[Rfam]
A member of the RNA family "Nuclear RNase P" from Steinernema hermaphroditum, 294 nucleotides long. The family has 116 seed sequences and 3,848 matches in Rfam 15.1. From the family's description: Ribonuclease P (RNase P) is a ubiquitous endoribonuclease, found in archaea, bacteria and eukarya as well as chloroplasts and mitochondria.

RNA sequence: UCGGUCGAAAGCGGAUCUUAGGAGCAUCCCACAGGCACCCGUUGCCUUCAGCUCUCCUGGGAAGGUCUGAGAUGAGGCCGACCGUCUUCGGACGGUUCACUCUCUAGCAGGGAGGCGACUUAAGAGUACGCGGGGCUGUACCAGAAACGCGGCGUCGGCGCUCGCAACGCACACGACUGCGCGUCAAACCGCACGAUGCGAUCGGGUGCAGGACGUCUUCUGAAACGGCGCCGGCCGGCUGAGCUGAGUGCGAUGGUCACAUGUGAAACCCAAUUCAGACUAUUCUUCGACCAA
Numbered sequence: 001u002c003g004g005u006c007g008a009a010a011g012c013g014g015a016u017c018u019u020a021g022g023a024g025c026a027u028c029c030c031a032c033a034g035g036c037a038c039c040c041g042u043u044g045c046c047u048u049c050a051g052c053u054c055u056c057c058u059g060g061g062a063a064g065g066u067c068u069g070a071g072a073u074g075a076g077g078c079c080g081a082c083c084g085u086c087u088u089c090g091g092a093c094g095g096u097u098c099a100c101u102c103u104c105u106a107g108c109a110g111g112g113a114g115g116c117g118a119c120u121u122a123a124g125a126g127u128a129c130g131c132g133g134g135g136c137u138g139u140a141c142c143a144g145a146a147a148c149g150c151g152g153c154g155u156c157g158g159c160g161c162u163c164g165c166a167a168c169g170c171a172c173a174c175g176a177c178u179g180c181g182c183g184u185c186a187a188a189c190c191g192c193a194c195g196a197u198g199c200g201a202u203c204g205g206g207u208g209c210a211g212g213a214c215g216u217c218u219u220c221u222g223a224a225a226c227g228g229c230g231c232c233g234g235c236c237g238g239c240u241g242a243g244c245u246g247a248g249u250g251c252g253a254u255g256g257u258c259a260c261a262u263g264u265g266a267a268a269c270c271c272a273a274u275u276c277a278g279a280c281u282a283u284u285c286u287u288c289g290a291c292c293a294a
Stems, first nucleotide, its partner, number of pairs: 001294001003292002007288003013260001017256002020058005033047005067278005076236004100114005115131003120126001132232002135229004151217003
Dot-bracket structure: (.((..(((...[...[[.(((((........(((((.....)))))......)))))........(((((....((((....................(((((.....)))))(((..(.....)..)))((.((((............(((.............................................................)))........)))).))))))..................]]...].............))))).......)))..)).)